[Rfam]
RNA sequence: GUUUUUUUAAUGAGGGUCGAUUACGCCCAUCGUGGCAUCAUGGGGUGAUCUCGCCGAUACGGUGAUACCACGAUGAGCGUAAGUCAGUGGUGUUGACUGCACAUGCAGGACGCGGGUGCGAUACCCGCCGCGUCCACCAUAAUCGGCUGUCUGUCGAGAGGGCAGUUCGGCCGAUUAUGCUGGGCGCGAAAUAGGAUCGACUGGUGUGUAAAGACAGAUGCUGCGUUCCGGCAUGAUACCGUCGUUAUCGGGUCAACAAUGUAAGUGCUAACAGCAAUGUUCCACUUGUUGAGCUACGUAAAGUAGCCUAACGGAGCCCGGCCGGGGCUUGGCAACAGAACCCGGCCACC
Numbered sequence: 001g002u003u004u005u006u007u008u009a010a011u012g013a014g015g016g017u018c019g020a021u022u023a024c025g026c027c028c029a030u031c032g033u034g035g036c037a038u039c040a041u042g043g044g045g046u047g048a049u050c051u052c053g054c055c056g057a058u059a060c061g062g063u064g065a066u067a068c069c070a071c072g073a074u075g076a077g078c079g080u081a082a083g084u085c086a087g088u089g090g091u092g093u094u095g096a097c098u099g100c101a102c103a104u105g106c107a108g109g110a111c112g113c114g115g116g117u118g119c120g121a122u123a124c125c126c127g128c129c130g131c132g133u134c135c136a137c138c139a140u141a142a143u144c145g146g147c148u149g150u151c152u153g154u155c156g157a158g159a160g161g162g163c164a165g166u167u168c169g170g171c172c173g174a175u176u177a178u179g180c181u182g183g184g185c186g187c188g189a190a191a192u193a194g195g196a197u198c199g200a201c202u203g204g205u206g207u208g209u210a211a212a213g214a215c216a217g218a219u220g221c222u223g224c225g226u227u228c229c230g231g232c233a234u235g236a237u238a239c240c241g242u243c244g245u246u247a248u249c250g251g252g253u254c255a256a257c258a259a260u261g262u263a264a265g266u267g268c269u270a271a272c273a274g275c276a277a278u279g280u281u282c283c284a285c286u287u288g289u290u291g292a293g294c295u296a297c298g299u300a301a302a303g304u305a306g307c308c309u310a311a312c313g314g315a316g317c318c319c320g321g322c323c324g325g326g327g328c329u330u331g332g333c334a335a336c337a338g339a340a341c342c343c344g345g346c347c348a349c350c
Base pairs, nucleotide, nucleotide: 041070042069043068075228076227077226078225079224087221088220089219091216092215093214102206103205104204106203107202108201112128113127114126115125116124129188130187131186132185133184134183135182229244230243231242232241234255235254236253239251240250314330315329316328317327320346322344324342325341
RNA: Alphaproteobacteria transfer-messenger RNA
Organism: Rhizobium sp. PDO1-076